The record is a 112-nucleotide RNA, which matches "drum RNA" in Rfam. Rfam classes the family as a small RNA. The family's consensus secondary structure is taken from published work.
RNA sequence: GAACGCUGAAAUAAACCGUUGGUCAAGCAAUGGGUUUAUGGAGUUCUAACAGGGGGUUUGUAUAGUUUCCACGACUUGAAUAGGCGUAUUGCCGAAAGAAAAUAUACCUUUA
Numbered sequence: 001g002a003a004c005g006c007u008g009a010a011a012u013a014a015a016c017c018g019u020u021g022g023u024c025a026a027g028c029a030a031u032g033g034g035u036u037u038a039u040g041g042a043g044u045u046c047u048a049a050c051a052g053g054g055g056g057u058u059u060g061u062a063u064a065g066u067u068u069c070c071a072c073g074a075c076u077u078g079a080a081u082a083g084g085c086g087u088a089u090u091g092c093c094g095a096a097a098g099a100a101a102a103u104a105u106a107c108c109u110u111u112a
Stems, first nucleotide, its partner, number of pairs: 001046004011039007018031004023079004060107003083093003